[Rfam]
RNA sequence: AGUUAUGGACAAUUAUUGUUCAUACCCAUUUUGGGUAUGAACAAUCAAUGUUCAUACGUUCAUAUAUUCAUAUGAACAAUUAUUGUUCAUACCUAUUUGGGGUAUGAACAAUCAUUGUUUAUAUGAACAAUU
Numbered sequence: 001a002g003u004u005a006u007g008g009a010c011a012a013u014u015a016u017u018g019u020u021c022a023u024a025c026c027c028a029u030u031u032u033g034g035g036u037a038u039g040a041a042c043a044a045u046c047a048a049u050g051u052u053c054a055u056a057c058g059u060u061c062a063u064a065u066a067u068u069c070a071u072a073u074g075a076a077c078a079a080u081u082a083u084u085g086u087u088c089a090u091a092c093c094u095a096u097u098u099g100g101g102g103u104a105u106g107a108a109c110a111a112u113c114a115u116u117g118u119u120u121a122u123a124u125g126a127a128c129a130a131u132u
Stems, first nucleotide, its partner, number of pairs: 004056005016044009068126011084110011